[Rfam]
RNA sequence: UCUUGGAGAUCGCUUAAUUUUACCUUUUGGUAAAGGCGGGGGACCCAUUUUUGGGGCGAAUCACGUUAUGUGUAGAGCACUCUUCGGCUCGAGCCCGGCAGCUAACCUCGUAGGCAUCGAAGGGGAUCACA
Numbered sequence: 001u002c003u004u005g006g007a008g009a010u011c012g013c014u015u016a017a018u019u020u021u022a023c024c025u026u027u028u029g030g031u032a033a034a035g036g037c038g039g040g041g042g043a044c045c046c047a048u049u050u051u052u053g054g055g056g057c058g059a060a061u062c063a064c065g066u067u068a069u070g071u072g073u074a075g076a077g078c079a080c081u082c083u084u085c086g087g088c089u090c091g092a093g094c095c096c097g098g099c100a101g102c103u104a105a106c107c108u109c110g111u112a113g114g115c116a117u118c119g120a121a122g123g124g125g126a127u128c129a130c131a
Stems, first nucleotide, its partner, number of pairs: 012115003018035006036111006046053002054096003062072004075090004

This 131-nucleotide RNA from Oligoflexus sp. belongs to the Rfam family "c-di-AMP riboswitch aptamer (ydaO/yuaA leader)". A search with the family's covariance model found it, with a score of 82 bits. This family represents a conserved RNA structure found upstream of the ydaO and yuaA genes in Bacillus subtilis and related genes in other bacteria. The source organism's lineage runs through Bacteria, Pseudomonadati, Bdellovibrionota, Oligoflexales and Oligoflexus.